[Rfam]
RNA: SAM riboswitch aptamer (S box leader)
Organism: Micromonospora sp. HM5-17
RNA sequence: CGGCCAUCCAGAGCGACCGAGAGACCUGGCUCGUUGACGUCGCAGCAACCCCCCGCGACGGGUGCGGGUGCUACCGCCAGGAUCGAUGGAGG
Numbered sequence: 001c002g003g004c005c006a007u008c009c010a011g012a013g014c015g016a017c018c019g020a021g022a023g024a025c026c027u028g029g030c031u032c033g034u035u036g037a038c039g040u041c042g043c044a045g046c047a048a049c050c051c052c053c054c055g056c057g058a059c060g061g062g063u064g065c066g067g068g069u070g071c072u073a074c075c076g077c078c079a080g081g082a083u084c085g086a087u088g089g090a091g092g
Stems, first nucleotide, its partner, number of pairs: 001092001004089005013043005021032003026080004044072004049068002051064001053062002076084001